[Rfam]
RNA sequence: GAGUUUUUGAUGUUGCAGGUACUGCAUUAGGAACUGAUUGGAUAAGUAUGUCACCAACAGUUCCUAAUGCAUUGCCUUCAGCAUCUAAAUG
Numbered sequence: 001g002a003g004u005u006u007u008u009g010a011u012g013u014u015g016c017a018g019g020u021a022c023u024g025c026a027u028u029a030g031g032a033a034c035u036g037a038u039u040g041g042a043u044a045a046g047u048a049u050g051u052c053a054c055c056a057a058c059a060g061u062u063c064c065u066a067a068u069g070c071a072u073u074g075c076c077u078u079c080a081g082c083a084u085c086u087a088a089a090u091g
Base pairs, nucleotide, nucleotide: 023071024070025069026068027067029065030064031063032062033061034060035059036058039056040055041054
RNA: mir-217 microRNA precursor family